The record is a 76-nucleotide sequence from Drosophila busckii, which matches "mir-965 microRNA precursor family" in Rfam.
Its family is annotated with RISC complex and miRNA-mediated post-transcriptional gene silencing in the Gene Ontology.
The match comes from Rfam's covariance-model search (71 bits).
The family's consensus secondary structure was predicted with RNAalifold.
Lineage of the source: Eukaryota > Opisthokonta > Aparaglossata > Schizophora > Dorsilopha.

RNA sequence: UUUUUAGGGGGUCAAACUGUACGCGAUAUGUGCCAAUAUAUAAAAUUCAUAAGCGUAUAGCUUUUCCCCUUAAAAG
Numbered sequence: 001u002u003u004u005u006a007g008g009g010g011g012u013c014a015a016a017c018u019g020u021a022c023g024c025g026a027u028a029u030g031u032g033c034c035a036a037u038a039u040a041u042a043a044a045a046u047u048c049a050u051a052a053g054c055g056u057a058u059a060g061c062u063u064u065u066c067c068c069c070u071u072a073a074a075a076g
Stems, first nucleotide, its partner, number of pairs: 003074005009068003014063001017060005024053001027051004